Rfam assigns this 84-nucleotide RNA from Ophiophagus hannah to the family "mir-15 microRNA precursor family".
Rfam 15.1 lists 2,045 matches to the family in 649 species.
[Rfam]
RNA sequence: CCUCAGAGUACUAUAGCAGCACAUCAUGAUUUGUGUUUCAUAAUAAAUAUGCAAGUCAUUAUUUGCUGCUUUAGAAUUUUAAGG
Numbered sequence: 001c002c003u004c005a006g007a008g009u010a011c012u013a014u015a016g017c018a019g020c021a022c023a024u025c026a027u028g029a030u031u032u033g034u035g036u037u038u039c040a041u042a043a044u045a046a047a048u049a050u051g052c053a054a055g056u057c058a059u060u061a062u063u064u065g066c067u068g069c070u071u072u073a074g075a076a077u078u079u080u081a082a083g084g
Stems, first nucleotide, its partner, number of pairs: 001084003005080002013072001015070007023062002026059011
Rfam links the family to the GO terms RISC complex and miRNA-mediated post-transcriptional gene silencing. Taxonomically the source falls in Ophiophagus (Eukaryota, Deuterostomia, Colubroidea, Elapidae). This family represents the related mir-15a and mir-15b sequences. In humans miR-15a and miR-16 are clustered within 0.5 kb at 13q14. This region has been shown to be deleted in more than half of B cell chronic lymphocytic leukaemias (CLL). Both miR-15a and miR-16 are deleted or down-regulated in more than two thirds of CLL cases. For this family Rfam cites "Frequent deletions and down-regulation of micro- RNA genes miR15 and miR16 at 13q14 in chronic lymphocytic leukemia" (Calin et al., Proc Natl Acad Sci U S A, 2002).